Rfam assigns this 78-nucleotide RNA from Carassius auratus to the family "Small nucleolar RNA SNORD72".
[Rfam]
RNA sequence: GGCUUACCAAUGAUGUGCAAAAAUAAAUGUCUGAACAAAUGACUGUCCAGUGAUAACAAUUUUAUACUGAGGUAAGCC
Numbered sequence: 001g002g003c004u005u006a007c008c009a010a011u012g013a014u015g016u017g018c019a020a021a022a023a024u025a026a027a028u029g030u031c032u033g034a035a036c037a038a039a040u041g042a043c044u045g046u047c048c049a050g051u052g053a054u055a056a057c058a059a060u061u062u063u064a065u066a067c068u069g070a071g072g073u074a075a076g077c078c
Stems, first nucleotide, its partner, number of pairs: 002077007
NCBI's taxonomy places the organism under Eukaryota, Actinopterygii, Ostariophysi, Otophysi, Carassius.
Pairs were carried over by alignment from the consensus structure.
The family has 16 seed sequences and 726 matches in Rfam 15.1.
snoRNA HBII-240 belongs to the CD family of snoRNAs. It is the human orthologue of the mouse MBII-240 and is predicted to guide 2'O-ribose methylation of the large 28S rRNA at residue U4590.
It is annotated as a C/D-box small nucleolar RNA.